RNA sequence: AGUAGAUAGAAUAAGUCCCUCACAACGGGCCAGCUGAACACUUAUGUUUCUUCCUGGUCGUAUUGAGGGAGAGAAAAAUGGUUUCC
Numbered sequence: 001a002g003u004a005g006a007u008a009g010a011a012u013a014a015g016u017c018c019c020u021c022a023c024a025a026c027g028g029g030c031c032a033g034c035u036g037a038a039c040a041c042u043u044a045u046g047u048u049u050c051u052u053c054c055u056g057g058u059c060g061u062a063u064u065g066a067g068g069g070a071g072a073g074a075a076a077a078a079u080g081g082u083u084u085c086c
Base pairs, nucleotide, nucleotide: 016070017069018068019067020066021065022064025061026060028059029058030057031056032055033054036050037049038048